[Rfam]
RNA sequence: ACACAAGGAAGGAGGUGGUCCAAGAUAUGAAUGGCUGUUACGCCUAUAGGACACGUGAGGUGGCUGUCCGCUAGCGCCACCGCUGCUGGAGAUUCCGUUCGCGGAGCGCGUAGCGAAUCCCAGGCAGUCACCCGGCCCCCGAGUCCUCGGUCUUGUCCGAUCGAGAUCGGUGCAGGUAAGCCCGCAUCGUUACGGCUCGGGGGUCGUCCUGU
Numbered sequence: 001a002c003a004c005a006a007g008g009a010a011g012g013a014g015g016u017g018g019u020c021c022a023a024g025a026u027a028u029g030a031a032u033g034g035c036u037g038u039u040a041c042g043c044c045u046a047u048a049g050g051a052c053a054c055g056u057g058a059g060g061u062g063g064c065u066g067u068c069c070g071c072u073a074g075c076g077c078c079a080c081c082g083c084u085g086c087u088g089g090a091g092a093u094u095c096c097g098u099u100c101g102c103g104g105a106g107c108g109c110g111u112a113g114c115g116a117a118u119c120c121c122a123g124g125c126a127g128u129c130a131c132c133c134g135g136c137c138c139c140c141g142a143g144u145c146c147u148c149g150g151u152c153u154u155g156u157c158c159g160a161u162c163g164a165g166a167u168c169g170g171u172g173c174a175g176g177u178a179a180g181c182c183c184g185c186a187u188c189g190u191u192a193c194g195g196c197u198c199g200g201g202g203g204u205c206g207u208c209c210u211g212u
Stems, first nucleotide, its partner, number of pairs: 014068006069115005074109002078106001080104004133206013146165006
RNA: Actinobacteria sRNA Ms_IGR-5
Organism: Nocardia donostiensis